[Rfam]
Nucleotides: 090
Stems, first nucleotide, its partner, number of pairs: 001090004
Number, partner (000 for none) and nucleotide at each position: 001090g002089g003088g004087a005000g006000g007000g008000a009000g010000a011000a012000a013000u014000a015000g016000a017000g018000a019000u020000u021000c022000a023000u024000u025000g026000g027000u028000c029000u030000g031000u032000c033000a034000a035000u036000c037000c038000g039000c040000u041000g042000a043000u044000g045000c046000a047000u048000u049000a050000c051000a052000g053000u054000g055000u056000g057000a058000u059000g060000u061000u062000a063000a064000u065000a066000a067000u068000g069000a070000a071000u072000c073000c074000c075000g076000g077000c078000a079000g080000g081000u082000u083000c084000u085000g086000a087004u088003c089002u090001u